A member of the RNA family "Mammalian CPEB3 ribozyme" from Alligator sinensis, 77 nucleotides long. About the family: The mammalian CPEB3 ribozyme is a self cleaving RNA located in the second intron of the CPEB3 gene which belongs to a family of genes regulating messenger RNA polyadenylation. This ribozyme is highly conserved and found only in mammals.

RNA sequence: GGUCACAAGUUUGAGGCCAUAGCAGAAGCGCUUACAGUAUGGCCCUGUCAGAUUCCACCAAAUCUGUGAAUUCUGAU
Numbered sequence: 001g002g003u004c005a006c007a008a009g010u011u012u013g014a015g016g017c018c019a020u021a022g023c024a025g026a027a028g029c030g031c032u033u034a035c036a037g038u039a040u041g042g043c044c045c046u047g048u049c050a051g052a053u054u055c056c057a058c059c060a061a062a063u064c065u066g067u068g069a070a071u072u073c074u075g076a077u
Base pairs, nucleotide, nucleotide: 013045015044016043017042018041021077023075024074025073026072027071028040030038049066050065051064052063053062054061
For this family Rfam cites "A genomewide search for ribozymes reveals an HDV-like sequence in the human CPEB3 gene" (Salehi-Ashtiani et al., Science, 2006). A search with the family's covariance model found it, with a score of 41 bits.